[Rfam]
RNA sequence: GAAGCGUCAACCCGGCACCACGGUCAAUACCGUGGACAAGACCGGGACCGUCGCUGCGCAAGGAGCGACUGCC
Numbered sequence: 001g002a003a004g005c006g007u008c009a010a011c012c013c014g015g016c017a018c019c020a021c022g023g024u025c026a027a028u029a030c031c032g033u034g035g036a037c038a039a040g041a042c043c044g045g046g047a048c049c050g051u052c053g054c055u056g057c058g059c060a061a062g063g064a065g066c067g068a069c070u071g072c073c
Base pairs, nucleotide, nucleotide: 011046012045013044014043015042018035019034020033021032022031023030024029050069051068052067053066054065055064057062
Overview: The family of this 73-nucleotide RNA sequence from Actinoplanes friuliensis is "Transposase-2 RNA".